[Rfam]
RNA sequence: ACUCAACAUUUUACUAUUAAAAAGGGUGAGUCUAAGUUGUAAAAGCAAGCCGUCUUUGAACGGAUCCUUGAUCAGCUUGUUAGCCCUAAACCUGUUUUUUACGGAGUUU
Numbered sequence: 001a002c003u004c005a006a007c008a009u010u011u012u013a014c015u016a017u018u019a020a021a022a023a024g025g026g027u028g029a030g031u032c033u034a035a036g037u038u039g040u041a042a043a044a045g046c047a048a049g050c051c052g053u054c055u056u057u058g059a060a061c062g063g064a065u066c067c068u069u070g071a072u073c074a075g076c077u078u079g080u081u082a083g084c085c086c087u088a089a090a091c092c093u094g095u096u097u098u099u100u101a102c103g104g105a106g107u108u109u
Base pairs, nucleotide, nucleotide: 023087024086025085026084027083034078035077036076037075038074043069044068045067050063051062052061053060
This 109-nucleotide RNA sequence from Mesonia phycicola belongs to the Rfam family "6S-Flavo RNA". The family's RNA type in Rfam is small RNA.